[Rfam]
RNA sequence: GGGUGUUCGCUGCAUUCGGCGGCGGGCAGGUUGAUGCGAUGGUCGGGCCGCCACG
Numbered sequence: 001g002g003g004u005g006u007u008c009g010c011u012g013c014a015u016u017c018g019g020c021g022g023c024g025g026g027c028a029g030g031u032u033g034a035u036g037c038g039a040u041g042g043u044c045g046g047g048c049c050g051c052c053a054c055g
Stems, first nucleotide, its partner, number of pairs: 005027008037055002040053004
A member of the RNA family "nhaA-I RNA" from Drosophila kikkawai, 55 nucleotides long. The organism belongs to Sophophora, within Eukaryota. From the family's description: Acidobacteria, Alphaproteobacteria, Betaproteobacteria and Gammaproteobacteria, Verrucomicrobia, cand. division NC10. Pairs were carried over by alignment from the consensus structure, which is taken from published work. Rfam classes the family as a riboswitch.